[Rfam]
RNA sequence: UCGCAGGAGCCUCCCGGGCUAGUCUGAAAAUAAUAAUUUGAGGAAUUAAGCCCCAAAGCUCCUGCUAGAUUGGUGACAUUCGUGUUGCAGUUCUGUCUAAAUCUUUCCUGGCUUAACUGUGUCAAAGCAAUGUCUAGAUUU
Numbered sequence: 001u002c003g004c005a006g007g008a009g010c011c012u013c014c015c016g017g018g019c020u021a022g023u024c025u026g027a028a029a030a031u032a033a034u035a036a037u038u039u040g041a042g043g044a045a046u047u048a049a050g051c052c053c054c055a056a057a058g059c060u061c062c063u064g065c066u067a068g069a070u071u072g073g074u075g076a077c078a079u080u081c082g083u084g085u086u087g088c089a090g091u092u093c094u095g096u097c098u099a100a101a102u103c104u105u106u107c108c109u110g111g112c113u114u115a116a117c118u119g120u121g122u123c124a125a126a127g128c129a130a131u132g133u134c135u136a137g138a139u140u141u
Base pairs, nucleotide, nucleotide: 003065004064005063006062007061008060009059010058016053017052018051019050020049021047022046023044024043025042075134076133077132078131079130080129083124084123086121087120088119089118090117091116095112096111097110
The record is a 141-nucleotide RNA sequence from Brassica napus, which matches "small nucleolar RNA snoR134" in Rfam. Lineage of the source: Eukaryota > Embryophyta > Tracheophyta > Euphyllophyta > Brassica. Rfam 15.1 lists 792 matches to the family in 228 species. The family's consensus secondary structure was predicted with RNAalifold. Rfam links the family to the GO terms nucleolus and RNA processing.